[Rfam]
RNA: MIR2617 microRNA precursor family
Organism: Medicago truncatula
RNA sequence: AAGCAGUGUAGCAUGCCCGUUAGGUGUUAAACUCUGAUUUAAUUUUAUAUUUAUGUUGUUGGGAAAACGGGGUGUUACAUUUUU
Numbered sequence: 001a002a003g004c005a006g007u008g009u010a011g012c013a014u015g016c017c018c019g020u021u022a023g024g025u026g027u028u029a030a031a032c033u034c035u036g037a038u039u040u041a042a043u044u045u046u047a048u049a050u051u052u053a054u055g056u057u058g059u060u061g062g063g064a065a066a067a068c069g070g071g072g073u074g075u076u077a078c079a080u081u082u083u084u
Stems, first nucleotide, its partner, number of pairs: 002084002005081010016071006
Dot-bracket structure: .((.((((((((((.((((((............................................)))))))))))))))).))